[Rfam]
RNA: SAM riboswitch aptamer (S box leader)
Organism: Olavius sp. associated proteobacterium Delta 1
RNA sequence: UAAUCAUGAAGAGAAGCGCGAGGGAUCUGGCCUGUUGACCGCUCAGCAACCUUUUCCAUAAAGGUGCUAAUUCCAGGCCCGCAAGGGAUACAUGAGGU
Numbered sequence: 001u002a003a004u005c006a007u008g009a010a011g012a013g014a015a016g017c018g019c020g021a022g023g024g025a026u027c028u029g030g031c032c033u034g035u036u037g038a039c040c041g042c043u044c045a046g047c048a049a050c051c052u053u054u055u056c057c058a059u060a061a062a063g064g065u066g067c068u069a070a071u072u073c074c075a076g077g078c079c080c081g082c083a084a085g086g087g088a089u090a091c092a093u094g095a096g097g098u
Stems, first nucleotide, its partner, number of pairs: 004095005013044001015043004022033003027076004045068004050064002052060001072090001078086002